[Rfam]
RNA sequence: CGGGUUUACUCCUGGAUUACCUGUUCGCCUGGCCGGAGCCGGGCGACGUUUUGGUGUCUGAUUCGCUAGGCGAAUCGGGAGCACCAUCUGCGUAGGCUUGAGGUUUAAGGCUUGCGCCGCCUACGGUCUUGGAUAGCCCCCGCCAGGCAGGGACCCCAAUUUUUUCAAGCCGGCGGAUCGCUCCACCG
Numbered sequence: 001c002g003g004g005u006u007u008a009c010u011c012c013u014g015g016a017u018u019a020c021c022u023g024u025u026c027g028c029c030u031g032g033c034c035g036g037a038g039c040c041g042g043g044c045g046a047c048g049u050u051u052u053g054g055u056g057u058c059u060g061a062u063u064c065g066c067u068a069g070g071c072g073a074a075u076c077g078g079g080a081g082c083a084c085c086a087u088c089u090g091c092g093u094a095g096g097c098u099u100g101a102g103g104u105u106u107a108a109g110g111c112u113u114g115c116g117c118c119g120c121c122u123a124c125g126g127u128c129u130u131g132g133a134u135a136g137c138c139c140c141c142g143c144c145a146g147g148c149a150g151g152g153a154c155c156c157c158a159a160u161u162u163u164u165u166c167a168a169g170c171c172g173g174c175g176g177a178u179c180g181c182u183c184c185a186c187c188g
Stems, first nucleotide, its partner, number of pairs: 002156006011147004021048001026045008052086006058078007090143003095138004103134010172187002175184003